[Rfam]
RNA sequence: UUUGAUGUGAAUUGAUUUAUGUUUAGAUACACUCAUAUAAAAGUGAUUAUCAUGACUUGAUGUUGUUUGGAUAG
Number, nucleotide and partner (000 for none) at each position: 001u000002u000003u000004g000005a000006u000007g000008u000009g000010a000011a061012u060013u059014g058015a057016u000017u055018u054019a000020u000021g053022u052023u000024u000025a000026g048027a047028u046029a000030c045031a044032c043033u042034c000035a000036u000037a000038u000039a000040a000041a000042a033043g032044u031045g030046a028047u027048u026049a000050u000051c000052a022053u021054g018055a017056c000057u015058u014059g013060a012061u011062g000063u000064u000065g000066u000067u000068u000069g000070g000071a000072u000073a000074g000
MIR5272 microRNA precursor family: a 74-nucleotide sequence from Medicago truncatula. The family has 6 seed sequences and 271 matches in Rfam 15.1. NCBI's taxonomy places the organism under Eukaryota, Viridiplantae, Euphyllophyta, Trifolieae, Medicago.